This 77-nucleotide sequence from Tetraodon nigroviridis belongs to the Rfam family "Small nucleolar RNA MBII-202". Gene Ontology terms of the family: RNA processing and nucleolus. Lineage of the source: Eukaryota > Craniata > Neopterygii > Eurypterygia > Tetraodon. The family's RNA type in Rfam is C/D-box small nucleolar RNA. The sequence is in the family's curated seed alignment.
RNA sequence: UGAUGACAAAUCUCCGGAAUCUCUGUAUUGACUUGAUGAAUACUUGAACCCAUUAAUCUGAUACUGGCUGCAUCGAU
Numbered sequence: 001u002g003a004u005g006a007c008a009a010a011u012c013u014c015c016g017g018a019a020u021c022u023c024u025g026u027a028u029u030g031a032c033u034u035g036a037u038g039a040a041u042a043c044u045u046g047a048a049c050c051c052a053u054u055a056a057u058c059u060g061a062u063a064c065u066g067g068c069u070g071c072a073u074c075g076a077u
Stems, first nucleotide, its partner, number of pairs: 002077001004075003